Shown here is a 167-nucleotide RNA sequence from Podarcis muralis, a member of the family "Small Cajal body specific RNA 1".
NCBI's taxonomy places the organism under Eukaryota, Eumetazoa, Bilateria, Squamata, Podarcis.
RNA sequence: AAGCACUUGAUACUAACCAAGCCAUCUUUACCUUUGUUCUCGUUUCGAGUUCAGAGGUAUAACUAGUGAUCGGCUAGGUCUAAAAAGUGCAACAUCAAAACAAGUCAUGAAGUAAUCAAGCUCAGUGUGUGGAGAAUCACACUGGGUUAUAACUCAGAGGCACAAAU
Numbered sequence: 001a002a003g004c005a006c007u008u009g010a011u012a013c014u015a016a017c018c019a020a021g022c023c024a025u026c027u028u029u030a031c032c033u034u035u036g037u038u039c040u041c042g043u044u045u046c047g048a049g050u051u052c053a054g055a056g057g058u059a060u061a062a063c064u065a066g067u068g069a070u071c072g073g074c075u076a077g078g079u080c081u082a083a084a085a086a087g088u089g090c091a092a093c094a095u096c097a098a099a100a101c102a103a104g105u106c107a108u109g110a111a112g113u114a115a116u117c118a119a120g121c122u123c124a125g126u127g128u129g130u131g132g133a134g135a136a137u138c139a140c141a142c143u144g145g146g147u148u149a150u151a152a153c154u155c156a157g158a159g160g161c162a163c164a165a166a167u
Base pairs, nucleotide, nucleotide: 003090004089005088006087007086008085016079017078018077020075021074022073023072024070025069026068027061029059030058031057032056033055035053036052039049040048104161105160106159125140126139127138130135142157143156144155145154146153147152